Streptomyces RNA 4115: a 109-nucleotide RNA from Streptomyces sp. QHH-9511. A search with the family's covariance model found it, with a score of 78 bits. From the family's description: Identified by deep sequencing of transcriptome at the end of exponential growth phase. Sequencing size consistent with notrthern blot size. Streptomyces specific. A reference for the family is Vockenhuber et al. (2011), "Deep sequencing-based identification of small non-coding RNAs in Streptomyces coelicolor", RNA Biol. The pairing is the family consensus, mapped onto this sequence.
[Rfam]
RNA sequence: GCGUGGGUCGGCCCGCCGGCUGUGGACCGGUUGGCUGGGGGACACCGUCGCCCCCCUCCCCGAGGGCGGCGGACGGCUCCGGGAGGCGAAGAGCGCCUCCCGGACUGCC
Numbered sequence: 001g002c003g004u005g006g007g008u009c010g011g012c013c014c015g016c017c018g019g020c021u022g023u024g025g026a027c028c029g030g031u032u033g034g035c036u037g038g039g040g041g042a043c044a045c046c047g048u049c050g051c052c053c054c055c056c057u058c059c060c061c062g063a064g065g066g067c068g069g070c071g072g073a074c075g076g077c078u079c080c081g082g083g084a085g086g087c088g089a090a091g092a093g094c095g096c097c098u099c100c101c102g103g104a105c106u107g108c109c
Stems, first nucleotide, its partner, number of pairs: 001108002007074002009037005015031004038043001045072009055062001076106001078104011
Dot-bracket structure: ((....(((((((.((((.........)))).)))))(....).(((((((((.(......).))))))))))).(.(((((((((((.....))))))))))).))).